[Rfam]
The family of this 107-nucleotide RNA sequence from Trametes cinnabarina is "Small nucleolar RNA Z13/snr52". The source organism's lineage runs through Eukaryota, Opisthokonta, Basidiomycota, Polyporales and Trametes. It scores 53 bits against the family's covariance model.
RNA sequence: CUCUUGCGUAUGAUGAAACCAUUAACGGAUGUAACGAGCAAUGCUCGAUUGUCCGAGAGCGCUUAAAGUCGUGUGGAUAACCCGUUGCCUUCCUUCUGACUACACGC
Numbered sequence: 001c002u003c004u005u006g007c008g009u010a011u012g013a014u015g016a017a018a019c020c021a022u023u024a025a026c027g028g029a030u031g032u033a034a035c036g037a038g039c040a041a042u043g044c045u046c047g048a049u050u051g052u053c054c055g056a057g058a059g060c061g062c063u064u065a066a067a068g069u070c071g072u073g074u075g076g077a078u079a080a081c082c083c084g085u086u087g088c089c090u091u092c093c094u095u096c097u098g099a100c101u102a103c104a105c106g107c
Base pairs, nucleotide, nucleotide: 003106005104026084027083028082
Pairs were carried over by alignment from the consensus structure, which was predicted with PFOLD.